The family of this 62-nucleotide RNA from Aurantiacibacter gangjinensis is "terC RNA".
RNA sequence: ACCGCGUACCGGGCCCCUCUGGCGUCUGCGGCCCUUGCUGCAACGUGAUGUCGGACGCAAAA
Numbered sequence: 001a002c003c004g005c006g007u008a009c010c011g012g013g014c015c016c017c018u019c020u021g022g023c024g025u026c027u028g029c030g031g032c033c034c035u036u037g038c039u040g041c042a043a044c045g046u047g048a049u050g051u052c053g054g055a056c057g058c059a060a061a062a
Base pairs, nucleotide, nucleotide: 006056007055009054010053011052012051022046023045024044025043027042028041029040030039031038
The family's RNA type in Rfam is cis-regulatory element. A search with the family's covariance model found it, with a score of 48 bits. The source organism's lineage runs through Bacteria, Pseudomonadati, Pseudomonadota, Sphingomonadales and Aurantiacibacter.